[Rfam]
Notes
Shown here is a 55-nucleotide RNA sequence from Conger conger, a member of the family "UnaL2 LINE 3' element". It is annotated as a cis-regulatory element. Rfam describes the family as follows. The eel long interspersed element (LINE) UnaL2 and its partner short interspersed element (SINE) share a conserved 3' tail containing a stem-loop that is critical for their retrotransposition. The source organism's lineage runs through Eukaryota, Deuterostomia, Actinopteri, Anguilliformes and Conger. Its family is annotated with transposition, RNA-mediated in the Gene Ontology.
RNA sequence: AUUCUGCAAACUUGUAAGUCGCUUUGGAUUAAAAGCGUCUGCCAAAUGACUAAAG
Numbered sequence: 001a002u003u004c005u006g007c008a009a010a011c012u013u014g015u016a017a018g019u020c021g022c023u024u025u026g027g028a029u030u031a032a033a034a035g036c037g038u039c040u041g042c043c044a045a046a047u048g049a050c051u052a053a054a055g
Base pairs, nucleotide, nucleotide: 013044014042015041016040020037021036022035023034024033025032